[Rfam]
Plastid-psbA-4 3UTR RNA: a 59-nucleotide RNA sequence from Magnolia officinalis. Rfam's curators write: Plastid psbA-4 is a non-coding RNA (ncRNA) present in plastids. The sequence is in the family's curated seed alignment.
RNA sequence: AAAGGAUCCGAUCAAUACCCAACUUCUUGUUCUAUCAAGAAGUUGGGUAUUGAUCCGUU
Numbered sequence: 001a002a003a004g005g006a007u008c009c010g011a012u013c014a015a016u017a018c019c020c021a022a023c024u025u026c027u028u029g030u031u032c033u034a035u036c037a038a039g040a041a042g043u044u045g046g047g048u049a050u051u052g053a054u055c056c057g058u059u
Stems, first nucleotide, its partner, number of pairs: 006059001008057001010055008021044002024041006